Description: Makes More Granules Regulator RNA (mmgR): a 75-nucleotide RNA sequence from Sphingomonas sp. AP4-R1. The literature on the family includes a 2014 paper in RNA Biol by Torres-Quesada et al., "Genome-wide profiling of Hfq-binding RNAs uncovers extensive post-transcriptional rewiring of major stress response and symbiotic regulons in Sinorhizobium meliloti".
[Rfam]
RNA sequence: AGAACCCGCCUUUCAGGCAUCCUCUCCUAGACUUAAGGGCCGGCCUUUCGGGGCUGGCCCUUUUUUUAUCUGCGC
Numbered sequence: 001a002g003a004a005c006c007c008g009c010c011u012u013u014c015a016g017g018c019a020u021c022c023u024c025u026c027c028u029a030g031a032c033u034u035a036a037g038g039g040c041c042g043g044c045c046u047u048u049c050g051g052g053g054c055u056g057g058c059c060c061u062u063u064u065u066u067u068a069u070c071u072g073c074g075c
Stems, first nucleotide, its partner, number of pairs: 008018004037060009
Dot-bracket structure: .......((((...))))..................(((((((((......)))))))))...............